The family of this 85-nucleotide RNA sequence from Bos grunniens is "mir-149 microRNA precursor family". A search with the family's covariance model found it, with a score of 85 bits. The organism belongs to Bos, within Eukaryota. The base pairs follow the family's consensus structure, which was predicted with RNAalifold. The literature on the family includes a 2002 paper in Curr Biol by Lagos-Quintana et al., "Identification of tissue-specific microRNAs from mouse".
[Rfam]
RNA sequence: GGCGGCGCCCAGGCUCUGGCUCCGUGUCUUCACUCCCGUGUGUGUCCACCGAGGAGGGAGGGGCGGGGGCUGUGCUAGGGCGGCG
Numbered sequence: 001g002g003c004g005g006c007g008c009c010c011a012g013g014c015u016c017u018g019g020c021u022c023c024g025u026g027u028c029u030u031c032a033c034u035c036c037c038g039u040g041u042g043u044g045u046c047c048a049c050c051g052a053g054g055a056g057g058g059a060g061g062g063g064c065g066g067g068g069g070c071u072g073u074g075c076u077a078g079g080g081c082g083g084c085g
Stems, first nucleotide, its partner, number of pairs: 007081004012076003016072001018070001020068006027061005033056004